This 136-nucleotide sequence from Rousettus aegyptiacus belongs to the Rfam family "Small nucleolar RNA SNORA42/SNORA80 family".
The family has 21 seed sequences and 1,535 matches in Rfam 15.1.
Rfam describes the family as follows. The members of this family belong to the H/ACA class of snoRNAs that guide the sites of modification of uridines to pseudouridines. Human ACA42 (SNORA42) was cloned from HeLa cells by immunoprecipitation with anti-GAR1 antibody. Its is predicted to guide the pseudouridylation of residues U109 and U572 of 18S rRNA. ACA42 shares the same host gene with ACA26, ACA46, ACA50. This family also includes mammalian snoRNA ACA67 (SNORA80) which was identified by computational screening and its expression in mouse experimentally verified by Northern blot and primer extension analysis.
The family's consensus secondary structure was predicted with RNAalifold.
NCBI's taxonomy places the organism under Eukaryota, Euteleostomi, Dipnotetrapodomorpha, Rousettinae, Rousettus.
[Rfam]
RNA sequence: GCAUGGUAACAGAUUUUUGGCAGGCCCUUUUCUCUGGGCCUCUCAUAGUGGACCCAUGCCAGAGUAACCUGCAGCCUCGAACCAUUGCCCAGCCCCUUACCUGUGGGCUGUGAGCACUGAAGGGGGUUGUACAGUG
Numbered sequence: 001g002c003a004u005g006g007u008a009a010c011a012g013a014u015u016u017u018u019g020g021c022a023g024g025c026c027c028u029u030u031u032c033u034c035u036g037g038g039c040c041u042c043u044c045a046u047a048g049u050g051g052a053c054c055c056a057u058g059c060c061a062g063a064g065u066a067a068c069c070u071g072c073a074g075c076c077u078c079g080a081a082c083c084a085u086u087g088c089c090c091a092g093c094c095c096c097u098u099a100c101c102u103g104u105g106g107g108c109u110g111u112g113a114g115c116a117c118u119g120a121a122g123g124g125g126g127u128u129g130u131a132c133a134g135u136g
Stems, first nucleotide, its partner, number of pairs: 001059004005054003015048002018045003022041003025037002072129006083119002088114001090110006